[Rfam]
RNA: c-di-GMP-I riboswitch aptamer
Organism: Eggerthella sp. YY7918
RNA sequence: UAUUUUCACGAGCAAACCUGCCGGAAAGCAGGGACGCAAAGCUAUAGGGGCCGAACCCCUUGGGGCGGCUAGCCAGUUGCGAUC
Numbered sequence: 001u002a003u004u005u006u007c008a009c010g011a012g013c014a015a016a017c018c019u020g021c022c023g024g025a026a027a028g029c030a031g032g033g034a035c036g037c038a039a040a041g042c043u044a045u046a047g048g049g050g051c052c053g054a055a056c057c058c059c060u061u062g063g064g065g066c067g068g069c070u071a072g073c074c075a076g077u078u079g080c081g082a083u084c
Stems, first nucleotide, its partner, number of pairs: 012037002017032005040078004047074002049070003056064003